[Rfam]
RNA sequence: GAAAAUCACACGCUUAAUUUCGAUGCAGAUCGGAAGCGGGGGAACCAAUCUUUUGGGGUGUAUCUGGCUUGCGCCAGACGGAGAGCUCUUUCUCCCAACCCGACAGCUAACCUCGUCAGCGGAAAGAGAGGUGAC
Numbered sequence: 001g002a003a004a005a006u007c008a009c010a011c012g013c014u015u016a017a018u019u020u021c022g023a024u025g026c027a028g029a030u031c032g033g034a035a036g037c038g039g040g041g042g043a044a045c046c047a048a049u050c051u052u053u054u055g056g057g058g059u060g061u062a063u064c065u066g067g068c069u070u071g072c073g074c075c076a077g078a079c080g081g082a083g084a085g086c087u088c089u090u091u092c093u094c095c096c097a098a099c100c101c102g103a104c105a106g107c108u109a110a111c112c113u114c115g116u117c118a119g120c121g122g123a124a125a126g127a128g129a130g131g132u133g134a135c
Stems, first nucleotide, its partner, number of pairs: 011121004018035007036116006046055002056101003064077004080095004